[Rfam]
RNA: Iron response element I
Organism: Myotis brandtii
RNA sequence: CUGCCUCUUGCGUGAACAGUGUUUGGACGGAGCAG
Numbered sequence: 001c002u003g004c005c006u007c008u009u010g011c012g013u014g015a016a017c018a019g020u021g022u023u024u025g026g027a028c029g030g031a032g033c034a035g
Stems, first nucleotide, its partner, number of pairs: 001035004006031003010028001013026001015024002017021001